[Rfam]
RNA sequence: UUGCAAACCUUCCAGCAUGCUUGGGUCUAGGAUGACUCAGUGCAUUCCUGCAGUGCUUGCUAGAAUGUUCUGACAUGGUUUGAGGCCUUGACCUGUCCCUCCCUCAGAGCAUGGUCAUAGACAUUUCAGACACCU
Number, nucleotide and partner (000 for none) at each position: 001u000002u000003g060004c059005a058006a057007a000008c055009c000010u000011u000012c000013c000014a000015g000016c000017a000018u044019g043020c042021u000022u000023g038024g037025g036026u035027c034028u000029a000030g000031g000032a000033u000034g027035a026036c025037u024038c023039a000040g000041u000042g020043c019044a018045u000046u000047c000048c000049u000050g000051c000052a000053g000054u000055g008056c000057u006058u005059g004060c003061u000062a000063g000064a000065a000066u000067g000068u000069u000070c000071u128072g127073a126074c000075a124076u000077g000078g000079u000080u000081u000082g000083a000084g000085g000086c114087c113088u000089u111090g110091a000092c000093c107094u106095g105096u000097c000098c000099c000100u000101c000102c000103c000104u000105c095106a094107g093108a000109g000110c090111a089112u000113g087114g086115u000116c000117a000118u000119a000120g000121a000122c000123a000124u075125u000126u073127c072128a071129g000130a000131c000132a000133c000134c000135u000
A member of the RNA family "Small nucleolar RNA SNORA9" from Phocoena sinus, 135 nucleotides long. ACA9 is a member of the H/ACA class of snoRNA that guide the sites of modification of uridines to pseudouridines. The family's consensus secondary structure was predicted with PFOLD.